[Rfam]
RNA sequence: ACCGAGCGUCGUGGCGGGCGCUUGUGAGUCAGCUUCUUGACGGUAGAUAAGUGUGGAUGGAGUGAGAGGAGGAGUCCUGUGUAUGUCGUUGUCAACGUCGACCGAGCGUCCGUGCCAAGCGCUGCGUCACCAGGGGAUGACUGUCGGAAGAUGGUCAGUCCCGGGUGCAUAAGGAGUGGUGGAUGGUUCAGGACCGAAAGGUAGCAGACAAAAGCCACCGCGCGGUGCAGUGGCCGGACUGCGCUUGUGAGUUGACACGUAUACACAGCCUUCUCAAUACCUUCAGACCACUUGUUUUU
Numbered sequence: 001a002c003c004g005a006g007c008g009u010c011g012u013g014g015c016g017g018g019c020g021c022u023u024g025u026g027a028g029u030c031a032g033c034u035u036c037u038u039g040a041c042g043g044u045a046g047a048u049a050a051g052u053g054u055g056g057a058u059g060g061a062g063u064g065a066g067a068g069g070a071g072g073a074g075u076c077c078u079g080u081g082u083a084u085g086u087c088g089u090u091g092u093c094a095a096c097g098u099c100g101a102c103c104g105a106g107c108g109u110c111c112g113u114g115c116c117a118a119g120c121g122c123u124g125c126g127u128c129a130c131c132a133g134g135g136g137a138u139g140a141c142u143g144u145c146g147g148a149a150g151a152u153g154g155u156c157a158g159u160c161c162c163g164g165g166u167g168c169a170u171a172a173g174g175a176g177u178g179g180u181g182g183a184u185g186g187u188u189c190a191g192g193a194c195c196g197a198a199a200g201g202u203a204g205c206a207g208a209c210a211a212a213a214g215c216c217a218c219c220g221c222g223c224g225g226u227g228c229a230g231u232g233g234c235c236g237g238a239c240u241g242c243g244c245u246u247g248u249g250a251g252u253u254g255a256c257a258c259g260u261a262u263a264c265a266c267a268g269c270c271u272u273c274u275c276a277a278u279a280c281c282u283u284c285a286g287a288c289c290a291c292u293u294g295u296u297u298u299u
Stems, first nucleotide, its partner, number of pairs: 001044003004023007028041003046296008058285005066275007077268008087259003092255005098249001103247007110237002114234004119228009128167004133162004138157008168174001176218005186209003193202003
Background:
Rfam assigns this 299-nucleotide RNA from Caenorhabditis elegans to the family "Metazoan signal recognition particle RNA". It is one of the family's seed sequences. On this family, see Wild et al., Curr Opin Struct Biol 2002: "Towards the structure of the mammalian signal recognition particle". The organism belongs to Caenorhabditis, within Eukaryota. Its Rfam clan is "SRP clan".